[Rfam]
RNA sequence: UAGGCGGGCCGGGCCCCUCUGGCGGUCGUCUUCAGGACGAACGUGAUGUCGGACCGCAUCG
Number, nucleotide and partner (000 for none) at each position: 001u000002a000003g000004g000005c000006g055007g054008g000009c052010c051011g050012g049013g000014c000015c000016c000017c000018u000019c000020u000021g000022g044023c043024g042025g000026u040027c039028g038029u037030c000031u000032u000033c000034a000035g000036g000037a029038c028039g027040a026041a000042c024043g023044u022045g000046a000047u000048g000049u012050c011051g010052g009053a000054c007055c006056g000057c000058a000059u000060c000061g000
A member of the RNA family "terC RNA" from Sphingomonas sp. Leaf339, 61 nucleotides long.
The family's consensus secondary structure is taken from published work.